The family of this 72-nucleotide RNA from Yersinia enterocolitica is "MicA sRNA".
NCBI's taxonomy places the organism under Bacteria, Pseudomonadota, Gammaproteobacteria, Yersiniaceae, Yersinia enterocolitica subsp. enterocolitica.
Rfam's curators put it in the seed alignment.
It is annotated as a small RNA.
RNA sequence: GAAAGACGCGCAUUUGUUAUCAUCAUCCCUGUUAUCAGAGAUGUUAAUUUGGCCACAGCAAUGUGGCCUUUU
Numbered sequence: 001g002a003a004a005g006a007c008g009c010g011c012a013u014u015u016g017u018u019a020u021c022a023u024c025a026u027c028c029c030u031g032u033u034a035u036c037a038g039a040g041a042u043g044u045u046a047a048u049u050u051g052g053c054c055a056c057a058g059c060a061a062u063g064u065g066g067c068c069u070u071u072u
Base pairs, nucleotide, nucleotide: 024043025042026041027040029038030037031036051068052067053066054065055064056063057062
Dot-bracket structure: .......................((((.(((....))).)))).......(((((((....)))))))....